[Rfam]
RNA sequence: CCUCCACGCAUUAUUACUCACGGUACGAGUUUGAAGUGGCACAGCGCGUACCAAAAGUAAUAAUGAGCUGCGG
Numbered sequence: 001c002c003u004c005c006a007c008g009c010a011u012u013a014u015u016a017c018u019c020a021c022g023g024u025a026c027g028a029g030u031u032u033g034a035a036g037u038g039g040c041a042c043a044g045c046g047c048g049u050a051c052c053a054a055a056a057g058u059a060a061u062a063a064u065g066a067g068c069u070g071c072g073g
Stems, first nucleotide, its partner, number of pairs: 009065010022052006029045001